[Rfam]
RNA sequence: UCAGGACCGCCGCCGAACCACACCGCCCCGCAGCGUCACCGCGGGCCGUGGACCGGGGACCCACCGCAGCACUGGGGUGAAGCAGCAGACCCUCCCAGGGGGGCGCGCCGCCGGGUGUCUUCCCACCCGAACCCGUCAGCUAACUCGGUAGGCGGCAGGUGGAAGAAAG
Numbered sequence: 001u002c003a004g005g006a007c008c009g010c011c012g013c014c015g016a017a018c019c020a021c022a023c024c025g026c027c028c029c030g031c032a033g034c035g036u037c038a039c040c041g042c043g044g045g046c047c048g049u050g051g052a053c054c055g056g057g058g059a060c061c062c063a064c065c066g067c068a069g070c071a072c073u074g075g076g077g078u079g080a081a082g083c084a085g086c087a088g089a090c091c092c093u094c095c096c097a098g099g100g101g102g103g104c105g106c107g108c109c110g111c112c113g114g115g116u117g118u119c120u121u122c123c124c125a126c127c128c129g130a131a132c133c134c135g136u137c138a139g140c141u142a143a144c145u146c147g148g149u150a151g152g153c154g155g156c157a158g159g160u161g162g163a164a165g166a167a168a169g
Base pairs, nucleotide, nucleotide: 011154012153013152014151018051019050020049052149053148054147055146056145057144062074063073075134076133077132083110085108086107113128114127115126116125
The record is a 169-nucleotide RNA sequence from Modestobacter versicolor, which matches "c-di-AMP riboswitch aptamer (ydaO/yuaA leader)" in Rfam. The pairing is the family consensus, mapped onto this sequence. It scores 55 bits against the family's covariance model. This family represents a conserved RNA structure found upstream of the ydaO and yuaA genes in Bacillus subtilis and related genes in other bacteria.